[Rfam]
The family of this 59-nucleotide RNA from Oculatella sp. FACHB-28 is "Nitrogen stress-induced RNA 1". Lineage of the source: Bacteria > Bacillati > Cyanobacteriota > Oculatellaceae > Oculatella.
RNA sequence: UGGUAGAUGCACCCUGAUUUAACUCCCUAGCUCACUUGUUUGAGUUGGGGAGUUUUCUU
Numbered sequence: 001u002g003g004u005a006g007a008u009g010c011a012c013c014c015u016g017a018u019u020u021a022a023c024u025c026c027c028u029a030g031c032u033c034a035c036u037u038g039u040u041u042g043a044g045u046u047g048g049g050g051a052g053u054u055u056u057c058u059u
Stems, first nucleotide, its partner, number of pairs: 002013003024051011
Source information
The base pairs follow the family's consensus structure. The family has 17 seed sequences and 962 matches in Rfam 15.1. A reference for the family is Ionescu et al. (2010), "Heterocyst-specific transcription of NsiR1, a non-coding RNA encoded in a tandem array of direct repeats in cyanobacteria", J Mol Biol. The family's RNA type in Rfam is small RNA.